Shown here is a 78-nucleotide RNA sequence from Podargus strigoides, a member of the family "Small nucleolar RNA SNORD69". Rfam 15.1 lists 524 matches to the family in 496 species. Rfam describes the family as follows. snoRNA HBII-210 belongs to the C/D family of snoRNAs. It is the human orthologue of the mouse MBII-210 and is predicted to guide the 2'O-ribose methylation of large 28S rRNA on residue G4464. Taxonomically the source falls in Podargus (Eukaryota, Deuterostomia, Archosauria, Strisores).
RNA sequence: GACACAAAGCAUAUGAUGAGAAAAGCACUGAAACUGACUGUAUGAAGUGCAUUCAAUCCAAUGCUGAGCUUUUGUGUC
Numbered sequence: 001g002a003c004a005c006a007a008a009g010c011a012u013a014u015g016a017u018g019a020g021a022a023a024a025g026c027a028c029u030g031a032a033a034c035u036g037a038c039u040g041u042a043u044g045a046a047g048u049g050c051a052u053u054c055a056a057u058c059c060a061a062u063g064c065u066g067a068g069c070u071u072u073u074g075u076g077u078c
Base pairs, nucleotide, nucleotide: 001078002077003076004075005074006073007071008070009069010068